[Rfam]
RNA sequence: GCUUCUUUAGCUCAGUUGGUUAGAGCAUCUGACUGUUAAUCAGAGGGUCCUUGGUUCGAGCCCAAGAAGAAGCG
Numbered sequence: 001g002c003u004u005c006u007u008u009a010g011c012u013c014a015g016u017u018g019g020u021u022a023g024a025g026c027a028u029c030u031g032a033c034u035g036u037u038a039a040u041c042a043g044a045g046g047g048u049c050c051u052u053g054g055u056u057c058g059a060g061c062c063c064a065a066g067a068a069g070a071a072g073c074g
Stems, first nucleotide, its partner, number of pairs: 001073007010026004028044005050066005
RNA: tRNA
Organism: Parvicella tangerina